The family of this 213-nucleotide RNA from Cohnella rhizosphaerae is "c-di-AMP riboswitch aptamer (ydaO/yuaA leader)". Rfam links the family to the GO terms regulation of gene expression and cyclic-di-AMP binding.
Nucleotides: 213
Base pairs, nucleotide, nucleotide: 011198012197013196014195018034019033020032021031022030035193036192037191038190039189040188045096046095097178098177099176105151106150107149108148154172155171156170157169
Number, partner (000 for none) and nucleotide at each position: 001000u002000u003000u004000u005000c006000c007000a008000g009000u010000g011198c012197g013196c014195u015000u016000a017000a018034u019033c020032u021031c022030c023000c024000a025000a026000g027000c028000a029000g030022g031021g032020a033019g034018a035193g036192c037191g038190g039189g040188g041000g042000a043000c044000c045096c046095g047000a048000c049000g050000c051000g052000g053000a054000c055000g056000a057000u058000a059000u060000c061000g062000g063000c064000g065000c066000a067000u068000g069000c070000c071000g072000a073000u074000g075000u076000c077000c078000g079000a080000g081000c082000g083000g084000c085000c086000g087000a088000g089000c090000a091000a092000u093000c094000u095046u096045g097178g098177g099176g100000u101000g102000a103000a104000u105151g106150g107149c108148g109000a110000a111000c112000g113000a114000c115000g116000g117000g118000c119000a120000c121000c122000g123000u124000c125000c126000g127000g128000c129000u130000g131000a132000c133000g134000g135000u136000c137000g138000a139000c140000c141000g142000c143000u144000u145000g146000a147000u148108c149107g150106c151105u152000u153000a154172g155171g156170g157169c158000a159000g160000a161000c162000u163000c164000u165000c166000g167000a168000c169157g170156c171155c172154c173000g174000a175000a176099c177098c178097c179000g180000a181000c182000a183000g184000c185000u186000a187000a188040c189039c190038u191037c192036g193035c194000a195014a196013g197012c198011g199000u200000a201000g202000u203000a204000g205000a206000g207000a208000g209000a210000g211000g212000c213000a

About this RNA: It scores 87 bits against the family's covariance model.